RNA sequence: GGGUCUUUCUGGUUAGACCGAAUCUGAGCCUGGGAGCUCUCUGGCUAGCUAGGGAAUCCAC
Numbered sequence: 001g002g003g004u005c006u007u008u009c010u011g012g013u014u015a016g017a018c019c020g021a022a023u024c025u026g027a028g029c030c031u032g033g034g035a036g037c038u039c040u041c042u043g044g045c046u047a048g049c050u051a052g053g054g055a056a057u058c059c060a061c
Stems, first nucleotide, its partner, number of pairs: 001059004006055011018044003022040001026039004